[Rfam]
RNA sequence: AUAUUUCUAUCGCUUAAUCCCCUUCUUUGGGGAGCGGGGGAACCAUCGAAGCCGUCUUGUGGCUUCAGGGGUGAAUUCUUUCUUCUCAGAAAGGACGGGUACUCUCAGACCCGAAUCCGACAGCUAACCUCGUCAGCGUCCAUGAGAGGAAUA
Numbered sequence: 001a002u003a004u005u006u007c008u009a010u011c012g013c014u015u016a017a018u019c020c021c022c023u024u025c026u027u028u029g030g031g032g033a034g035c036g037g038g039g040g041a042a043c044c045a046u047c048g049a050a051g052c053c054g055u056c057u058u059g060u061g062g063c064u065u066c067a068g069g070g071g072u073g074a075a076u077u078c079u080u081u082c083u084u085c086u087c088a089g090a091a092a093g094g095a096c097g098g099g100u101a102c103u104c105u106c107a108g109a110c111c112c113g114a115a116u117c118c119g120a121c122a123g124c125u126a127a128c129c130u131c132g133u134c135a136g137c138g139u140c141c142a143u144g145a146g147a148g149g150a151a152u153a
Stems, first nucleotide, its partner, number of pairs: 011138004018033005034133006044068001069118003077094004097112004
RNA: c-di-AMP riboswitch aptamer (ydaO/yuaA leader)
Organism: Paenibacillus lutrae